[Rfam]
RNA sequence: GUAACACUCAAAAACUGGCGGCACUUUUUUUCAGAUUUAACAAAAAGUGCCCCCACAGUUUGAGUGCCAC
Numbered sequence: 001g002u003a004a005c006a007c008u009c010a011a012a013a014a015c016u017g018g019c020g021g022c023a024c025u026u027u028u029u030u031u032c033a034g035a036u037u038u039a040a041c042a043a044a045a046a047g048u049g050c051c052c053c054c055a056c057a058g059u060u061u062g063a064g065u066g067c068c069a070c
Stems, first nucleotide, its partner, number of pairs: 005066008016055003020051006027044003